Background: This 97-nucleotide RNA sequence from Kineothrix alysoides belongs to the Rfam family "pemK RNA".
RNA sequence: CUAACGCUACUUUUGUCCAGCCCCAGCCCCGCCUGAAAGCGGGAUCACGCAAGGGGGGCAACUCGCAGAGAUCCUGGGAGAGGUGAAAUUCCUAUGG
Numbered sequence: 001c002u003a004a005c006g007c008u009a010c011u012u013u014u015g016u017c018c019a020g021c022c023c024c025a026g027c028c029c030c031g032c033c034u035g036a037a038a039g040c041g042g043g044a045u046c047a048c049g050c051a052a053g054g055g056g057g058g059c060a061a062c063u064c065g066c067a068g069a070g071a072u073c074c075u076g077g078g079a080g081a082g083g084u085g086a087a088a089u090u091c092c093u094a095u096g097g
Base pairs, nucleotide, nucleotide: 012094013061014060015059016058017057018056062080063079064078066076067075068074081093082092083091

Rfam classes the family as a cis-regulatory element.